[Rfam]
RNA: Eukaryotic large subunit ribosomal RNA, nucleotides 1 to 413
RNA sequence: CCAGCCUCAGCCAGGCAUGACUACCCGCUGAACUUAAGCAUAUCAUUAAGCGGAGGAAAAGAAACCAACCGGGAUUCCCGUAGUAAUGGCGAAUGAAUUGGGAAUAGUCCAUCGCUGAAUCGUAGUUAAACUACGAACUGUGGCGUUAGCGGUGUUAUUAGGAAAUGUAUACGGUACCAAGUUCUAUCGAACUGGACUUCCCAGAGAAGGUGAAAGGCCUGUAGUAACUGUGUACGUUUUCCUGCAAGCAUCGUUAGAGUCGGCUUGCUUGUGAGUGCAAGCUAAAGUGGGUGGAAAGCUUCACCUAAGACUAAAUAAAUGCACGAGUUCGAUAGCGAACAAGUACCGUGAGGGAAAGUUGAAAAGAACUUUGAGAAAAGGGUUAAAAGUGCGUGAAACCGUUUAGAAGGAAG
Dot-bracket structure: .......................((((((.....((....))......))))).).........((....))...(((((.....((.....))....)))))..((((...(((((.((((((((...)))))))..).)))))....((.((((.(..(.(((((((.(((((.....(.((((......)))))....(...)..((.......)).......))))).))))))).....)))))).))........(((((((........))))))).....(((((........)))))..)))).................................((....))...............((((....)))).................................